Notes
A member of the RNA family "RNase MRP" from Trichoderma virens, 444 nucleotides long. The sequence is in the family's curated seed alignment. It is annotated as a ribozyme. RNase MRP is an enzymatically active ribonucleoprotein with two distinct roles in eukaryotes. In mitochondria it plays a direct role in the initiation of mitochondrial DNA replication.
[Rfam]
RNA sequence: CCUUUGCUCAACAAAUCGCCAUUCGAAGCUUACAAACGGAGAUGCUGCUUGCCAGCGCCUCGUGAGAUCACGGCUUUGGGAGAAAGUCCCCGGACGUCUCCUUUUCGGAGCAUGCGGAAACGCGCCGCCAUAGAAGCACUGCGGCUGACCUCCGCGCCUUGGCCCAGCUGAGGCAUCUGCCCUGCCUGCUGCUAAAUCCGUCUUUGCGAGACAUUUGCCAACCCUGUUUCUGCGCCUCUGGCCCCCAUGGAUGAAGAUAUGAGUCCGAGCUGGAUAGCUGUGGGAGCAGGGCCGCGUCGAUGUCGACCAAGGGUGGAUGGUAGGCGGACGUUUUGGUGUCUCGGCUGCGGUAUCGGGUGCAGAGGAUUUGUUGUCGAGGUCGAUAGUUAUGCGAUUGCCCGGCGCAAGCUUGGUUACUCGAUGGGGCCCAUUCUUGAUGCAAAG
Numbered sequence: 001c002c003u004u005u006g007c008u009c010a011a012c013a014a015a016u017c018g019c020c021a022u023u024c025g026a027a028g029c030u031u032a033c034a035a036a037c038g039g040a041g042a043u044g045c046u047g048c049u050u051g052c053c054a055g056c057g058c059c060u061c062g063u064g065a066g067a068u069c070a071c072g073g074c075u076u077u078g079g080g081a082g083a084a085a086g087u088c089c090c091c092g093g094a095c096g097u098c099u100c101c102u103u104u105u106c107g108g109a110g111c112a113u114g115c116g117g118a119a120a121c122g123c124g125c126c127g128c129c130a131u132a133g134a135a136g137c138a139c140u141g142c143g144g145c146u147g148a149c150c151u152c153c154g155c156g157c158c159u160u161g162g163c164c165c166a167g168c169u170g171a172g173g174c175a176u177c178u179g180c181c182c183u184g185c186c187u188g189c190u191g192c193u194a195a196a197u198c199c200g201u202c203u204u205u206g207c208g209a210g211a212c213a214u215u216u217g218c219c220a221a222c223c224c225u226g227u228u229u230c231u232g233c234g235c236c237u238c239u240g241g242c243c244c245c246c247a248u249g250g251a252u253g254a255a256g257a258u259a260u261g262a263g264u265c266c267g268a269g270c271u272g273g274a275u276a277g278c279u280g281u282g283g284g285a286g287c288a289g290g291g292c293c294g295c296g297u298c299g300a301u302g303u304c305g306a307c308c309a310a311g312g313g314u315g316g317a318u319g320g321u322a323g324g325c326g327g328a329c330g331u332u333u334u335g336g337u338g339u340c341u342c343g344g345c346u347g348c349g350g351u352a353u354c355g356g357g358u359g360c361a362g363a364g365g366a367u368u369u370g371u372u373g374u375c376g377a378g379g380u381c382g383a384u385a386g387u388u389a390u391g392c393g394a395u396u397g398c399c400c401g402g403c404g405c406a407a408g409c410u411u412g413g414u415u416a417c418u419c420g421a422u423g424g425g426g427c428c429c430a431u432u433c434u435u436g437a438u439g440c441a442a443a444g
Stems, first nucleotide, its partner, number of pairs: 002444006008437004014396006023080001024078006039061003043057005086427001088426004113124004125144004195368003202364006212356001215352001218349001335345001337343002398413002401410003